[Rfam]
RNA: Small nucleolar RNA SNORD102
RNA sequence: AGCUUGAUGAUGAUUGUCUUCUAUGAUUGCUUGCUGGAAAGCAAAGUGAUCUGUCAUUUCACCGCCACUGAGAGCA
Numbered sequence: 001a002g003c004u005u006g007a008u009g010a011u012g013a014u015u016g017u018c019u020u021c022u023a024u025g026a027u028u029g030c031u032u033g034c035u036g037g038a039a040a041g042c043a044a045a046g047u048g049a050u051c052u053g054u055c056a057u058u059u060c061a062c063c064g065c066c067a068c069u070g071a072g073a074g075c076a
Stems, first nucleotide, its partner, number of pairs: 002075004